[Rfam]
RNA sequence: AUGCAUGUAUGUGUGCAUGUAUGCAUGCAUGCAUGUAUGUAUGUAUGGUGCACUUGUGUGUGUGUG
Numbered sequence: 001a002u003g004c005a006u007g008u009a010u011g012u013g014u015g016c017a018u019g020u021a022u023g024c025a026u027g028c029a030u031g032c033a034u035g036u037a038u039g040u041a042u043g044u045a046u047g048g049u050g051c052a053c054u055u056g057u058g059u060g061u062g063u064g065u066g
Stems, first nucleotide, its partner, number of pairs: 008066004013061002017059005026052004030047002033044003
About this RNA:
The family of this 66-nucleotide RNA sequence from Rattus norvegicus is "mir-297 microRNA precursor family". The sequence is in the family's curated seed alignment. The organism belongs to Rattus, within Eukaryota. The family's consensus secondary structure was predicted with RNAalifold.